Description: Shown here is a 166-nucleotide sequence from Pelodiscus sinensis, a member of the family "Small Cajal body specific RNA 1". Lineage of the source: Eukaryota > Opisthokonta > Testudines > Cryptodira > Pelodiscus. Rfam's curators write: scaRNAs are a specific class of small nuclear RNAs which localise to the Cajal bodies and guide the modification of RNA polymerase II transcribed spliceosomal RNAs U1, U2, U4, U5 and U12. ACA35 belong to the H/ACA box class of guide RNAs as it has the predicted hairpin-hinge-hairpin-tail structure, conserved H/ACA-box motifs and is found associated with GAR1. It is predicted to guide pseudouridylation of the U2 spliceosomal snRNA at residue U89. Gene Ontology terms of the family: Cajal body, nucleolus and RNA processing.

[Rfam]
RNA sequence: AAGCACUUGAUACUAACCGAGCUAUCUGUAUCCUAGCUCUCAUAGAGAGAUCUGAGAUAUACCUUGUGAUUGCUGGGUCUGUGAAGUGCAAUAUUAAAGCAAGCCAUGAAGUAUUUAAGCUCAGCGUGUAGAGGAUCAUGCUGGGUUAUAACUCAGAGGCACAGCU
Numbered sequence: 001a002a003g004c005a006c007u008u009g010a011u012a013c014u015a016a017c018c019g020a021g022c023u024a025u026c027u028g029u030a031u032c033c034u035a036g037c038u039c040u041c042a043u044a045g046a047g048a049g050a051u052c053u054g055a056g057a058u059a060u061a062c063c064u065u066g067u068g069a070u071u072g073c074u075g076g077g078u079c080u081g082u083g084a085a086g087u088g089c090a091a092u093a094u095u096a097a098a099g100c101a102a103g104c105c106a107u108g109a110a111g112u113a114u115u116u117a118a119g120c121u122c123a124g125c126g127u128g129u130a131g132a133g134g135a136u137c138a139u140g141c142u143g144g145g146u147u148a149u150a151a152c153u154c155a156g157a158g159g160c161a162c163a164g165c166u
Base pairs, nucleotide, nucleotide: 003089004088005087006086007085008084016078017077018076020074021073022072024070025069026068027061028060029059030058031057032056033054035051037049038048039047040046103160104159105158124139126137129134141156142155143154144153145152146151
Dot-bracket structure: ..((((((.......(((.(((.((((((((((.(.((((.....)))).)..).))))))......))).))).))).....)))))).............(((..................(.(..(....)..).).((((((....)))))).)))......